[Rfam]
RNA: MIR1435 microRNA precursor family
Organism: Triticum urartu
RNA sequence: UAGGUUUGUCCUAAGUCAAACAUCUUUAGGUUUGACCAAAUUGAUGGAAAAAUAUAGCGACAUCUACAAUAUCAACUAUAUAUAGUAGUAUGAGAGUAUAUUUUAUAAUGAAACCAAAAUGAUCUUGUAGAUGUUGGCAUAUUUUCCCAUAGACUUGGUUAAACUUAAAGAUAUUUGACUUAGGACAAACCUAG
Numbered sequence: 001u002a003g004g005u006u007u008g009u010c011c012u013a014a015g016u017c018a019a020a021c022a023u024c025u026u027u028a029g030g031u032u033u034g035a036c037c038a039a040a041u042u043g044a045u046g047g048a049a050a051a052a053u054a055u056a057g058c059g060a061c062a063u064c065u066a067c068a069a070u071a072u073c074a075a076c077u078a079u080a081u082a083u084a085g086u087a088g089u090a091u092g093a094g095a096g097u098a099u100a101u102u103u104u105a106u107a108a109u110g111a112a113a114c115c116a117a118a119a120u121g122a123u124c125u126u127g128u129a130g131a132u133g134u135u136g137g138c139a140u141a142u143u144u145u146c147c148c149a150u151a152g153a154c155u156u157g158g159u160u161a162a163a164c165u166u167a168a169a170g171a172u173a174u175u176u177g178a179c180u181u182a183g184g185a186c187a188a189a190c191c192u193a194g
Stems, first nucleotide, its partner, number of pairs: 005189005011183010022172005031163005045149003049145004057138002059135010072122003077117001